[Rfam]
RNA sequence: CUCUCCGAAAUGACUUUAGGGUCAGCCUCAGGUGGCAACGUACGCCUGUAAAGCACUGCUAGGGCUAGGGGGCCUACCAGCCUACCAACCCCUGGCAAACUCGGAAGGGCGUACGUGAAGGCCUGGGAGUGAGGGCGCGAGCGAUAACGUCCGUGUCCUAACGGCGGAACAACGCAGACCGCCAGCUAAGGUCCCCAAGUCUGGACUAAGUGGGAAAGGAUGUGAGGGCGCCCAGACAGCCAGGAGGUUGGCUUAGAAGCAGCCAUCCUUUAAAGAGUGCGUAAUAGCUCACUGGUCGAGUGCCCUCGCGCCGAAAAUGAUCGGGGCUCAAGUCCAGCACCGAAGCUGCGGGUGCAGCGGGAUGACCGCUGCGCGGUAGGAGAGCGUUCCCCAUGCCGAUGAAGGUCGACCGUGAGGGCGGCUGGAGGUACGGGAAGUGCGAAU
Numbered sequence: 001c002u003c004u005c006c007g008a009a010a011u012g013a014c015u016u017u018a019g020g021g022u023c024a025g026c027c028u029c030a031g032g033u034g035g036c037a038a039c040g041u042a043c044g045c046c047u048g049u050a051a052a053g054c055a056c057u058g059c060u061a062g063g064g065c066u067a068g069g070g071g072g073c074c075u076a077c078c079a080g081c082c083u084a085c086c087a088a089c090c091c092c093u094g095g096c097a098a099a100c101u102c103g104g105a106a107g108g109g110c111g112u113a114c115g116u117g118a119a120g121g122c123c124u125g126g127g128a129g130u131g132a133g134g135g136c137g138c139g140a141g142c143g144a145u146a147a148c149g150u151c152c153g154u155g156u157c158c159u160a161a162c163g164g165c166g167g168a169a170c171a172a173c174g175c176a177g178a179c180c181g182c183c184a185g186c187u188a189a190g191g192u193c194c195c196c197a198a199g200u201c202u203g204g205a206c207u208a209a210g211u212g213g214g215a216a217a218g219g220a221u222g223u224g225a226g227g228g229c230g231c232c233c234a235g236a237c238a239g240c241c242a243g244g245a246g247g248u249u250g251g252c253u254u255a256g257a258a259g260c261a262g263c264c265a266u267c268c269u270u271u272a273a274a275g276a277g278u279g280c281g282u283a284a285u286a287g288c289u290c291a292c293u294g295g296u297c298g299a300g301u302g303c304c305c306u307c308g309c310g311c312c313g314a315a316a317a318u319g320a321u322c323g324g325g326g327c328u329c330a331a332g333u334c335c336a337g338c339a340c341c342g343a344a345g346c347u348g349c350g351g352g353u354g355c356a357g358c359g360g361g362a363u364g365a366c367c368g369c370u371g372c373g374c375g376g377u378a379g380g381a382g383a384g385c386g387u388u389c390c391c392c393a394u395g396c397c398g399a400u401g402a403a404g405g406u407c408g409a410c411c412g413u414g415a416g417g418g419c420g421g422c423u424g425g426a427g428g429u430a431c432g433g434g435a436a437g438u439g440c441g442a443a444u
Base pairs, nucleotide, nucleotide: 001384002383003382004381005380006379011024012023013022014021015020026129027127028126029125030124031123032122033121036120038116039115040114041113042112043111044110045109046108052101053100057097058096059095061093062092063091064090068086069085070083071082072081073080133158134157135156136155137154138153139152141150142149164175165174166173179351180350181349182348184347185346186345190341191340192339199338201337202336203335204334205333206332218312219311222309223308224307225306226305227304228303229302230301231300239296240295241294242293243292245269246268247267250264251263252262270274275290279288280287352374353373354372355371356370357369358368359367385439387436388435389434390433391432395429396428397427404423405422406421407420408419410417411416
Shown here is a 444-nucleotide part of an RNA from Oceanithermus profundus, a member of the family "Bacterial large subunit ribosomal RNA". The organism belongs to Oceanithermus profundus, within Bacteria. Clan: LSU clan. The family's consensus secondary structure is taken from published work.